[Rfam]
RNA sequence: UGCAUUCGGGUAAGUCAUACACGACCAGCUCCUAUUGAACUCCCCCAGGGCCGGAAGGCAGCAAGGGUAGAUGGUUGUAGCGGUGCGAUGUAUUCAGCUUACCCUUUU
Numbered sequence: 001u002g003c004a005u006u007c008g009g010g011u012a013a014g015u016c017a018u019a020c021a022c023g024a025c026c027a028g029c030u031c032c033u034a035u036u037g038a039a040c041u042c043c044c045c046c047a048g049g050g051c052c053g054g055a056a057g058g059c060a061g062c063a064a065g066g067g068u069a070g071a072u073g074g075u076u077g078u079a080g081c082g083g084u085g086c087g088a089u090g091u092a093u094u095c096a097g098c099u100u101a102c103c104c105u106u107u108u
Stems, first nucleotide, its partner, number of pairs: 008104008017093005022087002024084002
RNA: Bacteroidales small SRP
Organism: Muribaculum sp. An287